[Rfam]
RNA sequence: GGUAGGUGGAAGCUUUCGAUAGAGGUAGAAAUAUCUUUAGGAAGGUCUGAGAGUAGCCAAGCACAGAUUGAAAUGAUCAAAGGGAAACCUUACGUGGCAGCUGACCAGAAAUAGUUCCUGUUCUAGUAACAGUUGAGAUGGCUGCUGCUAGCCGGAUAGUCAAAUCGAAAGGUGGGCCAAUGUGUACGUCCAUAACUUAAUUCAGACUACUCUCCACAUACC
Numbered sequence: 001g002g003u004a005g006g007u008g009g010a011a012g013c014u015u016u017c018g019a020u021a022g023a024g025g026u027a028g029a030a031a032u033a034u035c036u037u038u039a040g041g042a043a044g045g046u047c048u049g050a051g052a053g054u055a056g057c058c059a060a061g062c063a064c065a066g067a068u069u070g071a072a073a074u075g076a077u078c079a080a081a082g083g084g085a086a087a088c089c090u091u092a093c094g095u096g097g098c099a100g101c102u103g104a105c106c107a108g109a110a111a112u113a114g115u116u117c118c119u120g121u122u123c124u125a126g127u128a129a130c131a132g133u134u135g136a137g138a139u140g141g142c143u144g145c146u147g148c149u150a151g152c153c154g155g156a157u158a159g160u161c162a163a164a165u166c167g168a169a170a171g172g173u174g175g176g177c178c179a180a181u182g183u184g185u186a187c188g189u190c191c192a193u194a195a196c197u198u199a200a201u202u203c204a205g206a207c208u209a210c211u212c213u214c215c216a217c218a219u220a221c222c
Base pairs, nucleotide, nucleotide: 001222002221003220004219008215009214010213013171014170015169021038022037023036024035025034026033027032047205048204049203050202051201055149056148057147066078067077068076069075080091081090082089083088097145098144099143100142101141102140103139118132119131120130121129122128172193173192174191175190176189177188
Shown here is a 222-nucleotide sequence from Nematocida ausubeli, a member of the family "Nuclear RNase P". From the family's description: Ribonuclease P (RNase P) is a ubiquitous endoribonuclease, found in archaea, bacteria and eukarya as well as chloroplasts and mitochondria. Its best characterised activity is the generation of mature 5'-ends of tRNAs by cleaving the 5'-leader elements of precursor-tRNAs. Cellular RNase Ps are ribonucleoproteins. A reference for the family is Xiao et al. (2002), "Eukaryotic Ribonuclease P: A Plurality of Ribonucleoprotein Enzymes", Annu Rev Biochem.